The family of this 120-nucleotide sequence from Arabis alpina is "mir-399 microRNA precursor family". Rfam's curators write: mir-399 was identified in both Arabidopsis thaliana and Oryza sativa computationally and was later experimentally verified. mir-399 is thought to target mRNAs coding for a phosphatase transporter. The mature sequence is excised from the 3' arm of the hairpin. It scores 57 bits against the family's covariance model. Its family is annotated with RISC complex and miRNA-mediated post-transcriptional gene silencing in the Gene Ontology.
[Rfam]
RNA sequence: AGAAGAAUUACCGGGCAAAUCUCCUUUGGCAGAGAACUCACUACAAAACAAUGCAUAAAAAGAUGCACAGAUCAAAGUAAUGGUUUCCUGCCAAUAGAGAUCUUGCCCUGUAAUGCAUUU
Numbered sequence: 001a002g003a004a005g006a007a008u009u010a011c012c013g014g015g016c017a018a019a020u021c022u023c024c025u026u027u028g029g030c031a032g033a034g035a036a037c038u039c040a041c042u043a044c045a046a047a048a049c050a051a052u053g054c055a056u057a058a059a060a061a062g063a064u065g066c067a068c069a070g071a072u073c074a075a076a077g078u079a080a081u082g083g084u085u086u087c088c089u090g091c092c093a094a095u096a097g098a099g100a101u102c103u104u105g106c107c108c109u110g111u112a113a114u115g116c117a118u119u120u
Stems, first nucleotide, its partner, number of pairs: 005116001007114003011110001013108006019101001021099003027093006034086002